[Rfam]
Rfam assigns this 48-nucleotide RNA sequence to the family "ssnA RNA". By type it is a cis-regulatory element.
RNA sequence: UGUUUGGUAGCUGCAACGUAGUGCUUCGCGCACGGGCUGUACGGUCGC
Numbered sequence: 001u002g003u004u005u006g007g008u009a010g011c012u013g014c015a016a017c018g019u020a021g022u023g024c025u026u027c028g029c030g031c032a033c034g035g036g037c038u039g040u041a042c043g044g045u046c047g048c
Stems, first nucleotide, its partner, number of pairs: 008039005021033004